[Rfam]
Nucleotides: 057
Stems, first nucleotide, its partner, number of pairs: 008053005014047012
Number, partner (000 for none) and nucleotide at each position: 001000a002000a003000a004000c005000c006000g007000c008053u009052g010051a011050g012049a013000a014047c015046c016045u017044u018043u019042u020041g021040a022039a023038u024037c025036a026000a027000g028000u029000a030000g031000u032000a033000u034000a035000g036025u037024g038023a039022u040021u041020c042019a043018a044017a045016a046015g047014g048000c049012u050011c051010u052009c053008a054000c055000a056000a057000a